[Rfam]
Nucleotides: 124
Stems, first nucleotide, its partner, number of pairs: 003081004009069011029055008103123006
Number, partner (000 for none) and nucleotide at each position: 001000u002000c003081a004080c005079u006078c007000u008000g009069g010068u011067u012066u013065c014064c015063c016062u017061u018060c019059a020000a021000a022000a023000g024000c025000g026000u027000a028000u029055a030054a031053a032052u033051c034050u035049u036048u037000c038000g039000c040000c041000u042000u043000u044000u045000a046000c047000u048036a049035a050034a051033g052032a053031u054030u055029u056000c057000c058000g059019u060018g061017g062016a063015g064014g065013g066012g067011a068010a069009c070000a071000a072000a073000u074000u075000u076000a077000c078006g079005a080004g081003u082000c083000u084000u085000u086000a087000a088000a089000c090000u091000a092000a093000u094000u095000u096000u097000u098000g099000g100000u101000u102000u103123g104122c105121c106120c107119u108118g109000c110000c111000u112000u113000c114000c115000c116000g117000u118108c119107g120106g121105g122104g123103c124000u

This 124-nucleotide RNA from Actinia tenebrosa belongs to the Rfam family "U5 spliceosomal RNA". NCBI's taxonomy places the organism under Eukaryota, Opisthokonta, Metazoa, Actiniidae, Actinia. U5 RNA is a component of both types of known spliceosome. The family's RNA type in Rfam is spliceosomal small nuclear RNA.